[Rfam]
Source information
The record is a 199-nucleotide sequence from Escherichia coli, which matches "IS009" in Rfam. Rfam classes the family as a non-coding RNA gene. The sequence is in the family's curated seed alignment.
RNA sequence: UGAAAGAUGCAGAAGCAGAAAAACUGUUCCGGAUCCGGGAGGCGGAAGAAACAAAAAACAGCCUGAUGCAGGUAGCCAGUGAGCAUAUUGCGCCGCUUCAGGAUGCUGCAGAUCUGGAAAUUGCAACGGAGGAAGAAACCUCGUUGCUGGAAGCCUGGAAGAAGUAUCGGGUGUUGCUGAACCGUGUUAAUACAACAAC
Numbered sequence: 001u002g003a004a005a006g007a008u009g010c011a012g013a014a015g016c017a018g019a020a021a022a023a024c025u026g027u028u029c030c031g032g033a034u035c036c037g038g039g040a041g042g043c044g045g046a047a048g049a050a051a052c053a054a055a056a057a058a059c060a061g062c063c064u065g066a067u068g069c070a071g072g073u074a075g076c077c078a079g080u081g082a083g084c085a086u087a088u089u090g091c092g093c094c095g096c097u098u099c100a101g102g103a104u105g106c107u108g109c110a111g112a113u114c115u116g117g118a119a120a121u122u123g124c125a126a127c128g129g130a131g132g133a134a135g136a137a138a139c140c141u142c143g144u145u146g147c148u149g150g151a152a153g154c155c156u157g158g159a160a161g162a163a164g165u166a167u168c169g170g171g172u173g174u175u176g177c178u179g180a181a182c183c184g185u186g187u188u189a190a191u192a193c194a195a196c197a198a199c
Base pairs, nucleotide, nucleotide: 008037011034015029017027063129064128065127068124069123073095075093076092079091080090081089082088097118098117099116101115102114103113104112
Description:
The base pairs follow the family's consensus structure, which was predicted with CMfinder.